[Rfam]
RNA sequence: UUUUUAGUGUAAGUAUGCUCCAUGAAAUAUUUGGGACAUACUUACACUAAAC
Numbered sequence: 001u002u003u004u005u006a007g008u009g010u011a012a013g014u015a016u017g018c019u020c021c022a023u024g025a026a027a028u029a030u031u032u033g034g035g036a037c038a039u040a041c042u043u044a045c046a047c048u049a050a051a052c
Stems, first nucleotide, its partner, number of pairs: 006048007014040003019035003022031001
This 52-nucleotide RNA sequence from Puma concolor belongs to the Rfam family "mir-1302 microRNA precursor family". Pairs were carried over by alignment from the consensus structure, which was predicted with WAR. Taxonomically the source falls in Puma (Eukaryota, Opisthokonta, Amniota, Carnivora). Gene Ontology terms of the family: RISC complex and miRNA-mediated post-transcriptional gene silencing. The match comes from Rfam's covariance-model search (68 bits).